[Rfam]
RNA sequence: AAUAUCGAUAGAGGCGUGCUUGACAUGAGUAGUCUUUUGGAGAUUUGGAGAAAUCUGCGAAGAAAGACAAAAGGGGAGGGCACCGAAGAGGAAACGGCUCCAACGUUUCCAUCUGGUUGCAGGGUUAAGAGCUAUGCAAUUGUCACCGGAUCAGGUGAAGUGCUAUCUUGUUU
Numbered sequence: 001a002a003u004a005u006c007g008a009u010a011g012a013g014g015c016g017u018g019c020u021u022g023a024c025a026u027g028a029g030u031a032g033u034c035u036u037u038u039g040g041a042g043a044u045u046u047g048g049a050g051a052a053a054u055c056u057g058c059g060a061a062g063a064a065a066g067a068c069a070a071a072a073g074g075g076g077a078g079g080g081c082a083c084c085g086a087a088g089a090g091g092a093a094a095c096g097g098c099u100c101c102a103a104c105g106u107u108u109c110c111a112u113c114u115g116g117u118u119g120c121a122g123g124g125u126u127a128a129g130a131g132c133u134a135u136g137c138a139a140u141u142g143u144c145a146c147c148g149g150a151u152c153a154g155g156u157g158a159a160g161u162g163c164u165a166u167c168u169u170g171u172u173u
Stems, first nucleotide, its partner, number of pairs: 007167005016083006024075001032068007087114003090110007115141007123133003143158005
About this RNA:
Shown here is a 173-nucleotide RNA from Alkalibacter rhizosphaerae, a member of the family "Lysine riboswitch aptamer". Pairs were carried over by alignment from the consensus structure, which is taken from published work.